[Rfam]
RNA: TPP riboswitch aptamer (THI element)
Organism: Sphingobacterium gobiense
RNA sequence: GUAAAGCUUUAGGGGUAUUCUGAAAAGAAUUGAGAGACACCCUUCGAACCUGAUUCGGAUCAUACCGACGUAGGGAAAGGCAGUUUCGAGUUU
Dot-bracket structure: .....(((((((((.((((((....)))))......)..)))).....((((..((((......))))..))))..)))))............